[Rfam]
RNA sequence: AAGGCGGUAUCCUCGCAGGAACUGCACUUUGUUUCCGUGUUCACGGUAUGAUGGAAUGAUGUACCGAAAAUUUCAUACUUUUUUGCAAUAUGUCGGAUUCUGCUCUGAGCCUAUUGGACCGAGACAGAAGG
Numbered sequence: 001a002a003g004g005c006g007g008u009a010u011c012c013u014c015g016c017a018g019g020a021a022c023u024g025c026a027c028u029u030u031g032u033u034u035c036c037g038u039g040u041u042c043a044c045g046g047u048a049u050g051a052u053g054g055a056a057u058g059a060u061g062u063a064c065c066g067a068a069a070a071u072u073u074c075a076u077a078c079u080u081u082u083u084u085g086c087a088a089u090a091u092g093u094c095g096g097a098u099u100c101u102g103c104u105c106u107g108a109g110c111c112u113a114u115u116g117g118a119c120c121g122a123g124a125c126a127g128a129a130g131g
Stems, first nucleotide, its partner, number of pairs: 001029003004025005010020002100127003103123003107119001110117002

A member of the RNA family "pan motif" from Paenibacillus validus, 131 nucleotides long.
Lineage of the source: Bacteria > Bacillati > Bacilli > Caryophanales > Paenibacillus.
By type it is a cis-regulatory element.
The family's consensus secondary structure is taken from published work.